[Rfam]
Bacterial large subunit ribosomal RNA: a 230-nucleotide part of an RNA from Archangium sp. Cb G35. The match comes from Rfam's covariance-model search (2855 bits). The source organism's lineage runs through Bacteria, Pseudomonadati, Myxococcota, Cystobacterineae and Archangium.

RNA sequence: GACUUAAUGUACGUAGCGAGGCUAAGCCGAUAGGUGGAGCCGGAGCGAAAGCGAGUCCUAAAUGGGCGACUGAGUUGCGUGCAUUAUAACCCGAAGCGGGGUGAUCUACACAUGGCCAGGUUGAAGUGAGGGUAACACCUCAUGGAGGACCGAACUCAUGAAAGUUGAAAAUUUCUGGGAUGAGCUGUGUGUAGGGGUGAAAGGCCAAUCAAACUCCGUGAUAGCUGGUU
Numbered sequence: 001g002a003c004u005u006a007a008u009g010u011a012c013g014u015a016g017c018g019a020g021g022c023u024a025a026g027c028c029g030a031u032a033g034g035u036g037g038a039g040c041c042g043g044a045g046c047g048a049a050a051g052c053g054a055g056u057c058c059u060a061a062a063u064g065g066g067c068g069a070c071u072g073a074g075u076u077g078c079g080u081g082c083a084u085u086a087u088a089a090c091c092c093g094a095a096g097c098g099g100g101g102u103g104a105u106c107u108a109c110a111c112a113u114g115g116c117c118a119g120g121u122u123g124a125a126g127u128g129a130g131g132g133u134a135a136c137a138c139c140u141c142a143u144g145g146a147g148g149a150c151c152g153a154a155c156u157c158a159u160g161a162a163a164g165u166u167g168a169a170a171a172u173u174u175c176u177g178g179g180a181u182g183a184g185c186u187g188u189g190u191g192u193a194g195g196g197g198u199g200a201a202a203g204g205c206c207a208a209u210c211a212a213a214c215u216c217c218g219u220g221a222u223a224g225c226u227g228g229u230u
Stems, first nucleotide, its partner, number of pairs: 005086013020041004026035003045052002055067004090228002093225001097218006106194011117182001119151004126143006155179003160175004196206003